Rfam assigns this 110-nucleotide RNA sequence from Papaver somniferum to the family "Small nucleolar RNA Z152/R70/R12/". It scores 58 bits against the family's covariance model. Rfam classes the family as a C/D-box small nucleolar RNA. The literature on the family includes a 2001 paper in J Mol Biol by Barneche et al., "Identification of 66 box C/D snoRNAs in Arabidopsis thaliana: extensive gene duplications generated multiple isoforms predicting new ribosomal RNA 2'-O-methylation sites". The family's consensus secondary structure was predicted with PFOLD.
RNA sequence: UAAGCUAGAUUUUGAGUUGAAGCACACGAGAGUGCGUGUAGGGCAGUGGGAAAGACCUGAAAAUCUUUGCCGUGAGCCUUUAACCAAGACCUCUCCUUCCACUGAGCUUC
Numbered sequence: 001u002a003a004g005c006u007a008g009a010u011u012u013u014g015a016g017u018u019g020a021a022g023c024a025c026a027c028g029a030g031a032g033u034g035c036g037u038g039u040a041g042g043g044c045a046g047u048g049g050g051a052a053a054g055a056c057c058u059g060a061a062a063a064u065c066u067u068u069g070c071c072g073u074g075a076g077c078c079u080u081u082a083a084c085c086a087a088g089a090c091c092u093c094u095c096c097u098u099c100c101a102c103u104g105a106g107c108u109u110c
Base pairs, nucleotide, nucleotide: 002109003108004107005106